The record is a 74-nucleotide sequence from Clostridium manihotivorum, which matches "RAGATH-18 RNA" in Rfam. About the family: Actinobacteria, Firmicutes, Fusobacteria, Thermotogae (1 example). It is annotated as a small RNA. NCBI's taxonomy places the organism under Bacteria, Bacillota, Eubacteriales, Clostridiaceae, Clostridium. Pairs were carried over by alignment from the consensus structure, which is taken from published work.
RNA sequence: CCUUUGGAGAACUACAUCAAACAGAAGUAGUUUACUCUUUUGAGUUUACAAAAUUGGGUUCAACGAAAAAGGAA
Numbered sequence: 001c002c003u004u005u006g007g008a009g010a011a012c013u014a015c016a017u018c019a020a021a022c023a024g025a026a027g028u029a030g031u032u033u034a035c036u037c038u039u040u041u042g043a044g045u046u047u048a049c050a051a052a053a054u055u056g057g058g059u060u061c062a063a064c065g066a067a068a069a070a071g072g073a074a
Stems, first nucleotide, its partner, number of pairs: 001072005009061005022056003030049002035044002